[Rfam]
RNA sequence: AGAGGUUACAAGUUUAAGGCCAUAGCAGAAGCACUCAUGGGGUGCCCCUGUCAGAUUCCAAUAAAUCUGUGAAUUCAGCU
Numbered sequence: 001a002g003a004g005g006u007u008a009c010a011a012g013u014u015u016a017a018g019g020c021c022a023u024a025g026c027a028g029a030a031g032c033a034c035u036c037a038u039g040g041g042g043u044g045c046c047c048c049u050g051u052c053a054g055a056u057u058c059c060a061a062u063a064a065a066u067c068u069g070u071g072a073a074u075u076c077a078g079c080u
Stems, first nucleotide, its partner, number of pairs: 018046002021044001024080003028076003031043002052069006
RNA: Mammalian CPEB3 ribozyme
Organism: Alligator mississippiensis